[Rfam]
Nucleotides: 092
Stems, first nucleotide, its partner, number of pairs: 008063006038055005072092007
Number, partner (000 for none) and nucleotide at each position: 001000u002000a003000g004000a005000a006000g007000u008063c009062u010061u011060a012059u013058c014000u015000g016000c017000g018000c019000u020000a021000a022000g023000u024000a025000u026000a027000a028000a029000c030000a031000a032000u033000u034000g035000u036000u037000a038055u039054u040053g041052a042051g043000a044000a045000a046000g047000a048000a049000a050000a051042c052041u053040c054039a055038a056000a057000a058013g059012a060011u061010a062009a063008g064000a065000a066000a067000c068000u069000u070000a071000a072092c073091u074090a075089a076088a077087u078086a079000c080000u081000g082000a083000u084000a085000a086078u087077a088076u089075u090074u091073a092072g
Source information
Rfam assigns this 92-nucleotide RNA sequence to the family "PGK RNA". The sequence is in the family's curated seed alignment. The family's RNA type in Rfam is cis-regulatory element. The base pairs follow the family's consensus structure, which is taken from published work.